Rfam assigns this 52-nucleotide RNA sequence from Loktanella fryxellensis to the family "ffh sRNA".
The family's consensus secondary structure is taken from published work.
RNA sequence: UGACCAAAGGAUCGCCCUCCGUCAGCGCGUUGCGCCCACGGGGGCGCUACCG
Numbered sequence: 001u002g003a004c005c006a007a008a009g010g011a012u013c014g015c016c017c018u019c020c021g022u023c024a025g026c027g028c029g030u031u032g033c034g035c036c037c038a039c040g041g042g043g044g045c046g047c048u049a050c051c052g
Stems, first nucleotide, its partner, number of pairs: 016044007025035004